[Rfam]
RNA: OmrA-B family
RNA sequence: CCCAGAGGUAUUGAUUGGUGAGAUUUCAGUACGUAUAGAGUACUCACUUUUUGCACCAACCUGCGCGGAUGCGCAGGUUUUUUUU
Numbered sequence: 001c002c003c004a005g006a007g008g009u010a011u012u013g014a015u016u017g018g019u020g021a022g023a024u025u026u027c028a029g030u031a032c033g034u035a036u037a038g039a040g041u042a043c044u045c046a047c048u049u050u051u052u053g054c055a056c057c058a059a060c061c062u063g064c065g066c067g068g069a070u071g072c073g074c075a076g077g078u079u080u081u082u083u084u085u
Stems, first nucleotide, its partner, number of pairs: 016058005021049001028044005059078008